[Rfam]
RNA sequence: GGUCGCCGGGAGUGCAGUGAUCCGUCGGGUGGCAUCUGGUCGCCCGUGCCCGACGGGGAGCCAGUGGCGAAACCGAGCCCGCAGCAC
Numbered sequence: 001g002g003u004c005g006c007c008g009g010g011a012g013u014g015c016a017g018u019g020a021u022c023c024g025u026c027g028g029g030u031g032g033c034a035u036c037u038g039g040u041c042g043c044c045c046g047u048g049c050c051c052g053a054c055g056g057g058g059a060g061c062c063a064g065u066g067g068c069g070a071a072a073c074c075g076a077g078c079c080c081g082c083a084g085c086a087c
Base pairs, nucleotide, nucleotide: 001087004084007081008080009079010078014061015060022056023055024054025053026052027051028050029049038074039073040070041069042068043067044066

Source information
Rfam assigns this 87-nucleotide RNA sequence from Pilimelia terevasa to the family "c-di-GMP-II-GAG riboswitch aptamer". A search with the family's covariance model found it, with a score of 50 bits. Lineage of the source: Bacteria > Actinomycetes > Micromonosporales > Micromonosporaceae > Pilimelia. Gene Ontology terms of the family: cyclic-di-GMP binding and regulation of gene expression.